[Rfam]
Overview:
Bacterial small subunit ribosomal RNA: a 355-nucleotide part of an RNA from Alteromonadaceae bacterium M269. The organism belongs to Alteromonadaceae, within Bacteria. A search with the family's covariance model found it, with a score of 1565 bits. Pairs were carried over by alignment from the consensus structure, which is taken from published work.

RNA sequence: GGCGUAAAGCGCACGCAGGCGGUCUGUUAAGCGAGAUGUGAAAGCCCCGGGCUCAACCUGGGAGGGUCAUUUCGAACUGGCAGACUAGAGUUUUGAAGAGGGGAGUGGAAUUCCAGGUGUAGCGGUGAAAUGCGUAGAUAUCUGGAGGAACAUCAGUGGCGAAGGCGACUCCCUGGUCAAUAACUGACGCUCAUGUGCGAAAGUGUGGGUAGCGAACAGGAUUAGAUACCCUGGUAGUCCACACUGUAAACGCUGUCUACUAGCUGUUUGUGUGAUUUAUCACGUGGGUAGCGCAGCUAACGCGAUAAGUAGACCGCCUGGGGAGUACGGCCGCAAGGUUAAAACUCAAAUGAAU
Dot-bracket structure: (((.....(.((((...(((.(((((((.(((((((((.......((((((.....)))))).....)))))))..)))))))))...(((.((((...((((((((...((((((((...(((......)))......))))))))...).......((....)).)))))))..))))..)))...)))...))))....((((((...((...((((.........))))...))))))))..........((((((..((((((((((((......))))))))))))...((....)).....)))))))))).(((......((((....))))....)))........